[Rfam]
RNA sequence: CGGUGUGAGCUGGUCACAUGAGGUGCAGUGUGAUAGUGGAAGACACUGCAUACCAUGUGAUCUCGCUACACGGU
Numbered sequence: 001c002g003g004u005g006u007g008a009g010c011u012g013g014u015c016a017c018a019u020g021a022g023g024u025g026c027a028g029u030g031u032g033a034u035a036g037u038g039g040a041a042g043a044c045a046c047u048g049c050a051u052a053c054c055a056u057g058u059g060a061u062c063u064c065g066c067u068a069c070a071c072g073g074u
Stems, first nucleotide, its partner, number of pairs: 003071005012062009023051005
This 74-nucleotide sequence from Ornithorhynchus anatinus belongs to the Rfam family "mir-1421 microRNA precursor family". Rfam's curators put it in the seed alignment. Pairs were carried over by alignment from the consensus structure, which was predicted with RNAalifold.